[Rfam]
RNA sequence: AAAUUACUUUGAACGUGUGACGGGCCUUCCAUAAGACCCUGAUACCAAUUUUUGGGAGCUUACCUGGCGGUAAGCUU
Dot-bracket structure: .....................(((.(((....))).))).................((((((((....)))))))).
The record is a 77-nucleotide RNA from Caenorhabditis auriculariae, which matches "SmY spliceosomal RNA" in Rfam. On this family, see MacMorris et al., RNA 2007: "A novel family of C. elegans snRNPs contains proteins associated with trans-splicing". NCBI's taxonomy places the organism under Eukaryota, Eumetazoa, Ecdysozoa, Chromadorea, Caenorhabditis. Rfam 15.1 lists 408 matches to the family in 67 species. Rfam classes the family as a spliceosomal small nuclear RNA.